[Rfam]
RNA sequence: CAGAAAAAGAAGACCCUGUUAAGCUUAACUCUAGUUUGAUAUUAUGAAAAGAUAUAUCAGAUGUAGAAUAGGUGGGAGCUUCAGCAUCAGUGAAAUAUCACUAUCUUUAUUGGCUUUUUUACUUAUUUAAUGAAGCAGAACUGAGCUUUACUACCCAACUUCUAGUAUUAAGAUUCUUUACAGACUGAUUCAGAUUGAAGACAUUAUCAGAUAGAGAGUUUGGCUGGGACAGCACAUCUAUUAAACUAUAACACAGGUGUUCUAAAAAGAACUUAUAGAGAACAGAAAUCUUCAGUAGAACAAAAGAAUAAAAGUUCUCUUGAUUUUGAUUUUCAGUAUGAAUAUAAAUUAUAAAAGUGUAGCUUAUUAAUUCUUUAGUCUCUCAAAAUUUGAGACUAGAAGUGCCAGAAAAGUUACUACAGGAAUAACUGGCUUGUGGCAGUCAAGCAUUUAUAGCAACAUUACUUUUUGAUUCUUCAAUGUCAGCUCUUCCUAUUAUACUAAAGCAGAAUUUGGUAAGCAUUGGAUUAUUCACCCACUAAUAGGGAACAUGAGCUGGGUUUAGACUAUCAUGAGACAGAUUAGUUUUACCCUA
Numbered sequence: 001c002a003g004a005a006a007a008a009g010a011a012g013a014c015c016c017u018g019u020u021a022a023g024c025u026u027a028a029c030u031c032u033a034g035u036u037u038g039a040u041a042u043u044a045u046g047a048a049a050a051g052a053u054a055u056a057u058c059a060g061a062u063g064u065a066g067a068a069u070a071g072g073u074g075g076g077a078g079c080u081u082c083a084g085c086a087u088c089a090g091u092g093a094a095a096u097a098u099c100a101c102u103a104u105c106u107u108u109a110u111u112g113g114c115u116u117u118u119u120u121a122c123u124u125a126u127u128u129a130a131u132g133a134a135g136c137a138g139a140a141c142u143g144a145g146c147u148u149u150a151c152u153a154c155c156c157a158a159c160u161u162c163u164a165g166u167a168u169u170a171a172g173a174u175u176c177u178u179u180a181c182a183g184a185c186u187g188a189u190u191c192a193g194a195u196u197g198a199a200g201a202c203a204u205u206a207u208c209a210g211a212u213a214g215a216g217a218g219u220u221u222g223g224c225u226g227g228g229a230c231a232g233c234a235c236a237u238c239u240a241u242u243a244a245a246c247u248a249u250a251a252c253a254c255a256g257g258u259g260u261u262c263u264a265a266a267a268a269g270a271a272c273u274u275a276u277a278g279a280g281a282a283c284a285g286a287a288a289u290c291u292u293c294a295g296u297a298g299a300a301c302a303a304a305a306g307a308a309u310a311a312a313a314g315u316u317c318u319c320u321u322g323a324u325u326u327u328g329a330u331u332u333u334c335a336g337u338a339u340g341a342a343u344a345u346a347a348a349u350u351a352u353a354a355a356a357g358u359g360u361a362g363c364u365u366a367u368u369a370a371u372u373c374u375u376u377a378g379u380c381u382c383u384c385a386a387a388a389u390u391u392g393a394g395a396c397u398a399g400a401a402g403u404g405c406c407a408g409a410a411a412a413g414u415u416a417c418u419a420c421a422g423g424a425a426u427a428a429c430u431g432g433c434u435u436g437u438g439g440c441a442g443u444c445a446a447g448c449a450u451u452u453a454u455a456g457c458a459a460c461a462u463u464a465c466u467u468u469u470u471g472a473u474u475c476u477u478c479a480a481u482g483u484c485a486g487c488u489c490u491u492c493c494u495a496u497u498a499u500a501c502u503a504a505a506g507c508a509g510a511a512u513u514u515g516g517u518a519a520g521c522a523u524u525g526g527a528u529u530a531u532u533c534a535c536c537c538a539c540u541a542a543u544a545g546g547g548a549a550c551a552u553g554a555g556c557u558g559g560g561u562u563u564a565g566a567c568u569a570u571c572a573u574g575a576g577a578c579a580g581a582u583u584a585g586u587u588u589u590a591c592c593c594u595a
Base pairs, nucleotide, nucleotide: 003594007589008588015423016422017421018420020419021418022415023414024413025412026411028219029218030217031216035211036210037209038208039207040206041205045121046119047118048117049116050115051114053112054110055109056108060104071102072101073100074099075098078085079084126199127198128197129196130195138190139189143155172186174184175183222235223233224232225231236258237257238256239255241253261362268318269317270316271315272314273299274298276294278292279291280290281289300309324348325347326346329343330342331341332340350359351358352357374400375399376398377397378396381395382394383393384392432473434471436470438466439465441463442462443461447457448456484559485557486556487555488554490548491547492546493545494544497522500517501516502515503514504513505512524538525537526536528534565583566582568580570577571576
RNA: Eukaryotic large subunit ribosomal RNA, nucleotides 2369 to 2963
Organism: Coccidioides posadasii